The family of this 104-nucleotide RNA sequence from Methyloligella sp. GL2 is "Guanidine-I riboswitch aptamer".
RNA sequence: GAGGCCAGCAGCUAGGGUUCCGGAUGCCGCAAGCAUCGUCUGGUCCGAGAGCUGCAGCCCGGCGGCGCAGGCCGGGUACACGGCGGGACAAAAGCCCGGGAGGC
Numbered sequence: 001g002a003g004g005c006c007a008g009c010a011g012c013u014a015g016g017g018u019u020c021c022g023g024a025u026g027c028c029g030c031a032a033g034c035a036u037c038g039u040c041u042g043g044u045c046c047g048a049g050a051g052c053u054g055c056a057g058c059c060c061g062g063c064g065g066c067g068c069a070g071g072c073c074g075g076g077u078a079c080a081c082g083g084c085g086g087g088a089c090a091a092a093a094g095c096c097c098g099g100g101a102g103g104c
Base pairs, nucleotide, nucleotide: 008055009054010053011052012051015046016045020043021042022040023037024036025035026034027033057077058076059075060074061073062072063071079099081102085097086096087095

The match comes from Rfam's covariance-model search (85 bits).